Source information:
A member of the RNA family "Small nucleolar RNA R44/J54/Z268 family" from Solanum lycopersicum, 90 nucleotides long. The source organism's lineage runs through Eukaryota, Streptophytina, eudicotyledons, lamiids and Solanum subgen. Lycopersicon. By type it is a C/D-box small nucleolar RNA. Its Rfam clan is "SNORD74 clan".

[Rfam]
RNA sequence: UUUGCAAGUGAUGAUAAAACAGACAGGGACAUCAGAACUCUCUUAUAGGGUAAAAGAUGACUAGUCUAAUGGGAAUCUCUCUGAUGCAAU
Numbered sequence: 001u002u003u004g005c006a007a008g009u010g011a012u013g014a015u016a017a018a019a020c021a022g023a024c025a026g027g028g029a030c031a032u033c034a035g036a037a038c039u040c041u042c043u044u045a046u047a048g049g050g051u052a053a054a055a056g057a058u059g060a061c062u063a064g065u066c067u068a069a070u071g072g073g074a075a076u077c078u079c080u081c082u083g084a085u086g087c088a089a090u
Stems, first nucleotide, its partner, number of pairs: 002089005